[Rfam]
Rfam assigns this 219-nucleotide RNA to the family "RT-2 RNA".
By type it is a small RNA.
The base pairs follow the family's consensus structure, which is taken from published work.

RNA sequence: UAAGACACGACUUAGUACCCUUUUGGCGAAAACUACUGUCAAAACUAUAAGGAACGAGUGACCUUCGCGUGAAGCGUAAAUAGACAUCCAUGAUGUCAGUCAACGGACGCUUCUUGCAUGGCAUCCGAUGGGUCUAAGGAUGCUCAUGUUGACUGACUAUGUAACUACUGUGGCCUGAUUUACAAGUUAUACAUGGAUUAUGACAAGUCGCGAACGAAA
Numbered sequence: 001u002a003a004g005a006c007a008c009g010a011c012u013u014a015g016u017a018c019c020c021u022u023u024u025g026g027c028g029a030a031a032a033c034u035a036c037u038g039u040c041a042a043a044a045c046u047a048u049a050a051g052g053a054a055c056g057a058g059u060g061a062c063c064u065u066c067g068c069g070u071g072a073a074g075c076g077u078a079a080a081u082a083g084a085c086a087u088c089c090a091u092g093a094u095g096u097c098a099g100u101c102a103a104c105g106g107a108c109g110c111u112u113c114u115u116g117c118a119u120g121g122c123a124u125c126c127g128a129u130g131g132g133u134c135u136a137a138g139g140a141u142g143c144u145c146a147u148g149u150u151g152a153c154u155g156a157c158u159a160u161g162u163a164a165c166u167a168c169u170g171u172g173g174c175c176u177g178a179u180u181u182a183c184a185a186g187u188u189a190u191a192c193a194u195g196g197a198u199u200a201u202g203a204c205a206a207g208u209c210g211c212g213a214a215c216g217a218a219a
Stems, first nucleotide, its partner, number of pairs: 004040004019026002066076003086198007094191001095157010109117002120144007161190005169178001